[Rfam]
RNA sequence: CGGACAGAAUCGAAAAGUGCGAACGGAUCUGACUCAGGUGAUCCUGGGGGGAGAGCCAUCGAGACAAAGCCUCGGAAACAUUCAGAACAGAGGGCCAUGCUCGUAACCCCGGGAGAAGCUGCACUUUGCUCAGUAGCAUGUCGCGGCUCGUUGGGAGGCCGGUCUAAGGCCCGCGGUGGAGUCUUCAUUUUCCUUCGGGAGAGUGUCGACCCGCGGUGUCCGGCCGGCGCCGACGGUGUUGUACGGACGGGGCCUCAUUCCGCGCGCAGACGCUCAGUUUGCAACGCGGCAAGGUCCCGUCGGUCUGCGGCACUUCUGCUUUCGAU
Numbered sequence: 001c002g003g004a005c006a007g008a009a010u011c012g013a014a015a016a017g018u019g020c021g022a023a024c025g026g027a028u029c030u031g032a033c034u035c036a037g038g039u040g041a042u043c044c045u046g047g048g049g050g051g052a053g054a055g056c057c058a059u060c061g062a063g064a065c066a067a068a069g070c071c072u073c074g075g076a077a078a079c080a081u082u083c084a085g086a087a088c089a090g091a092g093g094g095c096c097a098u099g100c101u102c103g104u105a106a107c108c109c110c111g112g113g114a115g116a117a118g119c120u121g122c123a124c125u126u127u128g129c130u131c132a133g134u135a136g137c138a139u140g141u142c143g144c145g146g147c148u149c150g151u152u153g154g155g156a157g158g159c160c161g162g163u164c165u166a167a168g169g170c171c172c173g174c175g176g177u178g179g180a181g182u183c184u185u186c187a188u189u190u191u192c193c194u195u196c197g198g199g200a201g202a203g204u205g206u207c208g209a210c211c212c213g214c215g216g217u218g219u220c221c222g223g224c225c226g227g228c229g230c231c232g233a234c235g236g237u238g239u240u241g242u243a244c245g246g247a248c249g250g251g252g253c254c255u256c257a258u259u260c261c262g263c264g265c266g267c268a269g270a271c272g273c274u275c276a277g278u279u280u281g282c283a284a285c286g287c288g289g290c291a292a293g294g295u296c297c298c299g300u301c302g303g304u305c306u307g308c309g310g311c312a313c314u315u316c317u318g319c320u321u322u323c324g325a326u
Stems, first nucleotide, its partner, number of pairs: 001245002004242004009237004017151001020150003024146001026144001157225005
RNA: Eukaryotic large subunit ribosomal RNA, nucleotides 375 to 700
Organism: Thrips palmi